RNA: abiF RNA
Organism: Texcoconibacillus texcoconensis
RNA sequence: CUCACCACGCCUCUUAGCAAUGCGUACCAAGGUGAGU
Numbered sequence: 001c002u003c004a005c006c007a008c009g010c011c012u013c014u015u016a017g018c019a020a021u022g023c024g025u026a027c028c029a030a031g032g033u034g035a036g037u
Stems, first nucleotide, its partner, number of pairs: 001036006008024003